[Rfam]
The record is a 130-nucleotide sequence from Listeria grayi, which matches "PyrR binding site" in Rfam. This family represents the PyrR binding site and terminator structure. This RNA structure is found upstream of a variety of genes involved in pyrimidine biosynthesis and transport. The alignment also includes a portion of the antiterminator structure. The base pairs follow the family's consensus structure, which is taken from published work.
RNA sequence: ACACUUUUUUAAAAGCAGUCCAGAGAGGCUGACAAAGAGUGCAAGAUAGGAGAAACGAGGCCUAAAGUGAUACCCAGGCACCGUUCUAACCAAAACUCUUUGCUGCCCUCUAGCAAAGAGUUUUUUUAUU
Numbered sequence: 001a002c003a004c005u006u007u008u009u010u011a012a013a014a015g016c017a018g019u020c021c022a023g024a025g026a027g028g029c030u031g032a033c034a035a036a037g038a039g040u041g042c043a044a045g046a047u048a049g050g051a052g053a054a055a056c057g058a059g060g061c062c063u064a065a066a067g068u069g070a071u072a073c074c075c076a077g078g079c080a081c082c083g084u085u086c087u088a089a090c091c092a093a094a095a096c097u098c099u100u101u102g103c104u105g106c107c108c109u110c111u112a113g114c115a116a117a118g119a120g121u122u123u124u125u126u127u128a129u130u
Base pairs, nucleotide, nucleotide: 003040004039005038006037007036008035009034016031017030018029019028020027052087054085055084056083057082060079061078062077092124093123094122095121096120097119098118099117100116101115102114103113104112
Gene Ontology terms of the family: pyrimidine nucleobase transport and pyrimidine nucleobase biosynthetic process. NCBI's taxonomy places the organism under Bacteria, Bacillota, Caryophanales, Listeria, Listeria grayi.